[Rfam]
RNA: Eukaryotic small subunit ribosomal RNA, nucleotides 1644 to 1791
Organism: Haplosporidium costale
RNA sequence: CCGCCCGUCGCUCCUACCGAUUGAAUAAUCAGAUGAACUGAGUGGAUGGGCGUAGUCCUUUACGCCCCCAAAGCUCCGUGAAUCUUAUUAUUUAGAGGAAGGAAAAGUCGUAACAAGGUUACCGUAGGUGAACCUGCAGAAGGAUCAA
Dot-bracket structure: (.(..((.(..((((.((..(.(((((((.((((..((.((((....(((((((......)))).)))....)))).))..)))).))))))))..)).))))...).))...)..).((.(.(((((....))))).).))......